[Rfam]
RNA sequence: GGGGAUACGCUUAGAGUCCCCAAGGGUAUCGUGUUAAUAGUUGUGUCUUUGGCCGGGCACGACGGUUAGUGAAUC
Numbered sequence: 001g002g003g004g005a006u007a008c009g010c011u012u013a014g015a016g017u018c019c020c021c022a023a024g025g026g027u028a029u030c031g032u033g034u035u036a037a038u039a040g041u042u043g044u045g046u047c048u049u050u051g052g053c054c055g056g057g058c059a060c061g062a063c064g065g066u067u068a069g070u071g072a073a074u075c
Base pairs, nucleotide, nucleotide: 001021002020003019004018005017006016034069035068036067037066038065040063041062042061043060044059045058046057047056048055
The family of this 75-nucleotide RNA sequence is "L13-Bacteroidia ribosomal protein leader". It is one of the family's seed sequences.